[Rfam]
RNA sequence: UGAGACCUCUUGAUGGCCGCGACCAGCAAUGGUUGAGGAACUUCCGGGCUCCAUAGAGCACGAUGGCGGAUAACGUCCGCCCAGGGCGACCUGAGAGAUAGCGCAGCAGAGAAUAGACCGCCUGUGUGAUUCGUCAUAUAGGUAAGGGUGAAACGGCGGUGUAAGAGACCACCGGGUUGCUGGUAACAGUUAACCGCAUGGCAAGCCUCAUCGGGAGCAAGGCCAAGUAGAAGGCAGGGCUGCUCGUCCAUAUGCCUUCGGGUAGGCUGCUAGAGCCUGUCGGCAACGUCAGGUCGAGAUGGAUGGUCAUCCGUAUUGCUUCGGCAAUACGACAGAACCCGGGGUAAAAGAGGUCUCAUUCA
Number, nucleotide and partner (000 for none) at each position: 001u358002g357003a356004g355005a354006c353007c352008u351009c350010u349011u347012g311013a310014u309015g308016g307017c306018c305019g000020c035021g034022a033023c032024c031025a030026g000027c000028a000029a000030u025031g024032g023033u022034u021035g020036a000037g000038g000039a000040a345041c344042u343043u000044c342045c341046g340047g339048g338049c217050u216051c215052c214053a000054u000055a000056g245057a244058g243059c242060a000061c213062g212063a211064u210065g209066g080067c079068g078069g077070a076071u000072a000073a000074c000075g000076u070077c069078c068079g067080c066081c095082c093083a092084g091085g090086g000087c000088g000089a000090c085091c084092u083093g082094a000095g081096a208097g207098a000099u000100a000101g206102c205103g202104c201105a000106g000107c000108a000109g000110a000111g000112a000113a000114u000115a000116g000117a000118c147119c146120g143121c142122c141123u140124g139125u138126g137127u136128g135129a000130u000131u000132c000133g000134u000135c128136a127137u126138a125139u124140a123141g122142g121143u120144a000145a000146g119147g118148g000149u000150g000151a000152a000153a000154c000155g173156g172157c000158g170159g169160u168161g000162u000163a000164a000165g000166a000167g000168a160169c159170c158171a000172c156173c155174g197175g195176g194177u193178u192179g191180c189181u188182g187183g000184u000185a000186a000187c182188a181189g180190u000191u179192a178193a177194c176195c175196g000197c174198a000199u000200g000201g104202c103203a000204a000205g102206c101207c097208u096209c065210a064211u063212c062213g061214g052215g051216a050217g049218c000219a000220a000221g268222g267223c266224c265225a000226a000227g000228u000229a000230g259231a258232a257233g256234g255235c254236a000237g249238g248239g247240c246241u000242g059243c058244u057245c056246g240247u239248c238249c237250a000251u000252a000253u000254g235255c234256c233257u232258u231259c230260g000261g000262g000263u000264a000265g224266g223267c222268u221269g000270c000271u000272a000273g000274a000275g294276c293277c292278u291279g290280u000281c288282g287283g000284c000285a000286a000287c282288g281289u000290c279291a278292g277293g276294u275295c000296g000297a000298g000299a000300u000301g000302g000303a000304u000305g018306g017307u016308c015309a014310u013311c012312c000313g000314u000315a000316u000317u000318g000319c000320u000321u000322c000323g000324g000325c000326a000327a000328u000329a000330c000331g000332a000333c000334a000335g000336a000337a000338c048339c047340c046341g045342g044343g042344g041345u040346a000347a011348a000349a010350g009351a008352g007353g006354u005355c004356u003357c002358a001359u000360u000361c000362a000
Bacterial RNase P class A: a 362-nucleotide sequence from Bifidobacterium dolichotidis. The match comes from Rfam's covariance-model search (292 bits). Lineage of the source: Bacteria > Actinomycetota > Actinomycetes > Bifidobacteriaceae > Bifidobacterium. The family's consensus secondary structure is taken from published work. Rfam describes the family as follows. Ribonuclease P (RNase P) is a ubiquitous endoribonuclease, found in archaea, bacteria and eukarya as well as chloroplasts and mitochondria. Rfam classes the family as a ribozyme.